[Rfam]
RNA sequence: UUAUGAAUAUUUUCAUUGUUCUGAUUUUGUAAUAAUCAGAACAGGCUAAGCAUUUGCUAUAUUAAUAAUAUACAUAUGUCUCCAGACCUAGUUAUAUUUAUAGGUCUAGUUUUACAAAUGCUGGUGAUAUAC
Numbered sequence: 001u002u003a004u005g006a007a008u009a010u011u012u013u014c015a016u017u018g019u020u021c022u023g024a025u026u027u028u029g030u031a032a033u034a035a036u037c038a039g040a041a042c043a044g045g046c047u048a049a050g051c052a053u054u055u056g057c058u059a060u061a062u063u064a065a066u067a068a069u070a071u072a073c074a075u076a077u078g079u080c081u082c083c084a085g086a087c088c089u090a091g092u093u094a095u096a097u098u099u100a101u102a103g104g105u106c107u108a109g110u111u112u113u114a115c116a117a118a119u120g121c122u123g124g125u126g127a128u129a130u131a132c
Base pairs, nucleotide, nucleotide: 004056005055016044017043018042019041020040021039022038023037024036025035026034067125069123070122073120082109084107085106086105087104088103089102090101

This 132-nucleotide sequence from Marmota monax belongs to the Rfam family "Small nucleolar RNA SNORA72". A search with the family's covariance model found it, with a score of 106 bits. Its family is annotated with nucleolus and RNA processing in the Gene Ontology. The organism belongs to Marmota, within Eukaryota. Rfam's curators write: U72 is a member of the H/ACA class of snoRNAs. The snoRNA gene is located in intron 4 of the ribosomal L30 protein gene in human, mouse and chicken. For this family Rfam cites "The family of box ACA small nucleolar RNAs is defined by an evolutionarily conserved secondary structure and ubiquitous sequence elements essential for RNA accumulation" (Ganot et al., Genes Dev, 1997).